RNA: pan motif
RNA sequence: CAGGUGAAACCUUUAAAGGGGUUUACACUGUGCAACCUUUACCCCUUCAAACUAGAUUUUCCGCUUGGAUCCUUAAGGGACCGAGACGGGAUU
Numbered sequence: 001c002a003g004g005u006g007a008a009a010c011c012u013u014u015a016a017a018g019g020g021g022u023u024u025a026c027a028c029u030g031u032g033c034a035a036c037c038u039u040u041a042c043c044c045c046u047u048c049a050a051a052c053u054a055g056a057u058u059u060u061c062c063g064c065u066u067g068g069a070u071c072c073u074u075a076a077g078g079g080a081c082c083g084a085g086a087c088g089g090g091a092u093u
Stems, first nucleotide, its partner, number of pairs: 001030003004026005010021002061089003064085005070080003